[Rfam]
RNA sequence: UUCCAAGAGGGAAAGGUUAUAGCGAUUAUGUAAAAUUGAGUCAUAAGCGUAUAGCUUUUCCCCUUUGGCA
Numbered sequence: 001u002u003c004c005a006a007g008a009g010g011g012a013a014a015g016g017u018u019a020u021a022g023c024g025a026u027u028a029u030g031u032a033a034a035a036u037u038g039a040g041u042c043a044u045a046a047g048c049g050u051a052u053a054g055c056u057u058u059u060c061c062c063c064u065u066u067g068g069c070a
Stems, first nucleotide, its partner, number of pairs: 003068005009062003013058002017054005026046005
RNA: mir-965 microRNA precursor family
Organism: Dufourea novaeangliae